A member of the RNA family "FMN riboswitch aptamer (RFN element)" from Pseudorhodobacter sp., 139 nucleotides long. The family's consensus secondary structure is taken from published work.
RNA sequence: CGGAAUUCUCAGGGCGGGGCGAAAUUCCCCACCGGCGGUAUAGCCCGCGAGCGCCUUGGUUUUGGCAACAAAUCCUUGGGUCAGCAGAUCCGGUGUAACUCCGGGGCCGACGGUAUAGUCCGGAUGAAAGAGAAUGGUC
Dot-bracket structure: ....((((((......(((.......))).[[((((((....[[))))..((...............................))...(((((.......)))))]])).(((....]]))).......))))))....
Numbered sequence: 001c002g003g004a005a006u007u008c009u010c011a012g013g014g015c016g017g018g019g020c021g022a023a024a025u026u027c028c029c030c031a032c033c034g035g036c037g038g039u040a041u042a043g044c045c046c047g048c049g050a051g052c053g054c055c056u057u058g059g060u061u062u063u064g065g066c067a068a069c070a071a072a073u074c075c076u077u078g079g080g081u082c083a084g085c086a087g088a089u090c091c092g093g094u095g096u097a098a099c100u101c102c103g104g105g106g107c108c109g110a111c112g113g114u115a116u117a118g119u120c121c122g123g124a125u126g127a128a129a130g131a132g133a134a135u136g137g138u139c
Stems, first nucleotide, its partner, number of pairs: 005135006017029003031119002033109002035048004043107002051085002089105005111122003